[Rfam]
RNA: RAGATH-18 RNA
RNA sequence: CCUUUGGACUGCUACAUUAAACUAGAGUAGAAAUUGAAUUUCAAAAUAGAGCAGGAGGAAAAAGGAA
Dot-bracket structure: (((((...(((((........(((.....(((.(...).)))....))))))))......)))))..